[Rfam]
RNA sequence: AGAUGAUAAAGGCAAACUUUACCGAAAGGGAAGGACGCAAAGCCGUGAGCCUAACCGCUUCUUUCAGGAGUGUAUGGUUGUCAGGUUGCCGGG
Numbered sequence: 001a002g003a004u005g006a007u008a009a010a011g012g013c014a015a016a017c018u019u020u021a022c023c024g025a026a027a028g029g030g031a032a033g034g035a036c037g038c039a040a041a042g043c044c045g046u047g048a049g050c051c052u053a054a055c056c057g058c059u060u061c062u063u064u065c066a067g068g069a070g071u072g073u074a075u076g077g078u079u080g081u082c083a084g085g086u087u088g089c090c091g092g093g
Stems, first nucleotide, its partner, number of pairs: 012038002017033004022029002041087004046083003049078003056072006
This 93-nucleotide RNA from Niallia endozanthoxylica belongs to the Rfam family "c-di-GMP-I riboswitch aptamer".